[Rfam]
Shown here is a 103-nucleotide RNA sequence from Hibiscus trionum, a member of the family "Small nucleolar RNA R30/Z108".
Rfam links the family to the GO terms RNA processing and nucleolus.
The family's RNA type in Rfam is C/D-box small nucleolar RNA.
The family has 6 seed sequences and 626 matches in Rfam 15.1.
The literature on the family includes a 2002 paper in Curr Biol by Marker et al., "Experimental RNomics. Identification of 140 Candidates for Small Non-Messenger RNAs in the Plant Arabidopsis thaliana".
The family is grouped with related families in Rfam's "SNORD100 clan".
snoR30 is a C/D box small nucleolar RNA which acts as a methylation guide for 18S ribosomal RNA in plants.
A search with the family's covariance model found it, with a score of 74 bits.
NCBI's taxonomy places the organism under Eukaryota, Euphyllophyta, Magnoliopsida, Pentapetalae, Hibiscus.
RNA sequence: UGAGGUUGCGAUGAGGAUUCACAGCUCCCUCUUCCGAUUAUAUUCGUUGAAGAAGAUAUGCUGGCAGAAUCGAACCUAUAACUUUAUCGCCACCACUGAGCAA
Numbered sequence: 001u002g003a004g005g006u007u008g009c010g011a012u013g014a015g016g017a018u019u020c021a022c023a024g025c026u027c028c029c030u031c032u033u034c035c036g037a038u039u040a041u042a043u044u045c046g047u048u049g050a051a052g053a054a055g056a057u058a059u060g061c062u063g064g065c066a067g068a069a070u071c072g073a074a075c076c077u078a079u080a081a082c083u084u085u086a087u088c089g090c091c092a093c094c095a096c097u098g099a100g101c102a103a
Base pairs, nucleotide, nucleotide: 006103007102008101009100